[Rfam]
RNA sequence: CUCUUAUCCCGAGCUGGUGGAGGGACGGGCCCAAUGAAACCCAGCAACCCGCCGCUGGAACAGGCGAUGCGCUCGCAACGCAGCCGCCGCUUUAACUUCCAGGCAAAGGUGCUAACCUGCAGCAAGGAAAGGAUUCCUUGAACGAUAAGAG
Number, nucleotide and partner (000 for none) at each position: 001c151002u150003c149004u148005u147006a146007u145008c144009c000010c000011g000012a000013g042014c000015u000016g041017g040018u039019g000020g000021a000022g032023g031024g030025a000026c122027g000028g120029g118030c024031c023032c022033a000034a000035u000036g000037a000038a000039a018040c017041c016042c013043a113044g112045c111046a110047a000048c109049c108050c000051g104052c103053c102054g000055c000056u000057g000058g000059a000060a000061c000062a000063g000064g000065c000066g000067a000068u000069g000070c000071g000072c000073u000074c000075g000076c000077a000078a000079c000080g000081c000082a000083g000084c000085c000086g000087c000088c000089g000090c000091u000092u000093u000094a000095a000096c000097u000098u000099c000100c000101a000102g053103g052104c051105a000106a000107a000108g049109g048110u046111g045112c044113u043114a000115a000116c000117c000118u029119g000120c028121a000122g026123c140124a139125a138126g137127g136128a135129a000130a000131g000132g000133a000134u000135u128136c127137c126138u125139u124140g123141a000142a000143c000144g008145a007146u006147a005148a004149g003150a002151g001
A member of the RNA family "SAM riboswitch aptamer (S box leader)" from Weizmannia acidilactici, 151 nucleotides long. Rfam links the family to the GO term regulation of gene expression. The family's consensus secondary structure is taken from published work. Taxonomically the source falls in Heyndrickxia (Bacteria, Bacillati, Bacilli, Caryophanales).